[Rfam]
RNA: Phenylalanine leader peptide
Organism: Pantoea alhagi
RNA sequence: AAACCAAGCAUGCACGCUAUUUUUCGUUUCUUUUUUUACUUUAGCACCUGAAUUUUGGGGGCUUGUGCGCGAAAAAAGAAACGAAAAAUCGCACUGAAAGCCUCCCUCGUGGAGGCUUUUUUAUU
Numbered sequence: 001a002a003a004c005c006a007a008g009c010a011u012g013c014a015c016g017c018u019a020u021u022u023u024u025c026g027u028u029u030c031u032u033u034u035u036u037u038a039c040u041u042u043a044g045c046a047c048c049u050g051a052a053u054u055u056u057g058g059g060g061g062c063u064u065g066u067g068c069g070c071g072a073a074a075a076a077a078g079a080a081a082c083g084a085a086a087a088a089u090c091g092c093a094c095u096g097a098a099a100g101c102c103u104c105c106c107u108c109g110u111g112g113a114g115g116c117u118u119u120u121u122u123a124u125u
Base pairs, nucleotide, nucleotide: 016092017091019089021087022086023085024084025083026082027081028080029079030078031077032076033075034074036072037071039069047059048058049057061066097119098118099117100116101115102114103113104112105111